[Rfam]
RNA sequence: UGGUAGAUGCACCCUGAUUCAAAUCCCCUAGCGCCCUCGGGUUCUAGGGGAUUUUUUU
Numbered sequence: 001u002g003g004u005a006g007a008u009g010c011a012c013c014c015u016g017a018u019u020c021a022a023a024u025c026c027c028c029u030a031g032c033g034c035c036c037u038c039g040g041g042u043u044c045u046a047g048g049g050g051a052u053u054u055u056u057u058u
Stems, first nucleotide, its partner, number of pairs: 002013003025050007033042003